[Rfam]
RNA sequence: AUGCCUCUGGAAAGCGGUGCCGGCUCAAGCGGGUCAGCACCCGCCGAUGGGGAAAGGCACCCGGACACCAGCGGGCGCCGAAUCUCUCAGGCGCCCGGCGAACGGGUGAAGACAGAGGGAGAGGA
Numbered sequence: 001a002u003g004c005c006u007c008u009g010g011a012a013a014g015c016g017g018u019g020c021c022g023g024c025u026c027a028a029g030c031g032g033g034u035c036a037g038c039a040c041c042c043g044c045c046g047a048u049g050g051g052g053a054a055a056g057g058c059a060c061c062c063g064g065a066c067a068c069c070a071g072c073g074g075g076c077g078c079c080g081a082a083u084c085u086c087u088c089a090g091g092c093g094c095c096c097g098g099c100g101a102a103c104g105g106g107u108g109a110a111g112a113c114a115g116a117g118g119g120a121g122a123g124g125a
Stems, first nucleotide, its partner, number of pairs: 002120001004118006016041004043092003046088002050086003056079002
The family of this 125-nucleotide RNA sequence from Mycobacterium parascrofulaceum is "Glycine riboswitch aptamer".
Pairs were carried over by alignment from the consensus structure.
Taxonomically the source falls in Mycobacterium parascrofulaceum (Bacteria, Bacillati, Mycobacteriales, Mycobacterium).